[Rfam]
RNA sequence: GGAACAUGAUGAAGAACAAUUGGUCCGUGUUUCUGAUAAUCACAUGAUGAUUUCCAAUGAAACACUCAAUACUUCUGAUUCU
Numbered sequence: 001g002g003a004a005c006a007u008g009a010u011g012a013a014g015a016a017c018a019a020u021u022g023g024u025c026c027g028u029g030u031u032u033c034u035g036a037u038a039a040u041c042a043c044a045u046g047a048u049g050a051u052u053u054c055c056a057a058u059g060a061a062a063c064a065c066u067c068a069a070u071a072c073u074u075c076u077g078a079u080u081c082u
Stems, first nucleotide, its partner, number of pairs: 001082004